Shown here is a 100-nucleotide sequence from Pseudogymnoascus sp. VKM F-4519, a member of the family "Small nucleolar RNA Z13/snr52". Its family is annotated with RNA processing and nucleolus in the Gene Ontology. The source organism's lineage runs through Eukaryota, sordariomyceta, Thelebolales, Thelebolaceae and Pseudogymnoascus.

RNA sequence: UUACUUGAGAUGACGAAAAAUUCCGGAUGUAAACCAUUACUAUCUCCGAGAGCGCAAAACCCAUGUGGAGAUUUCCGUUGCCUUCCUUCUGAUCAAACCU
Numbered sequence: 001u002u003a004c005u006u007g008a009g010a011u012g013a014c015g016a017a018a019a020a021u022u023c024c025g026g027a028u029g030u031a032a033a034c035c036a037u038u039a040c041u042a043u044c045u046c047c048g049a050g051a052g053c054g055c056a057a058a059a060c061c062c063a064u065g066u067g068g069a070g071a072u073u074u075c076c077g078u079u080g081c082c083u084u085c086c087u088u089c090u091g092a093u094c095a096a097a098c099c100u
Stems, first nucleotide, its partner, number of pairs: 005097001024077004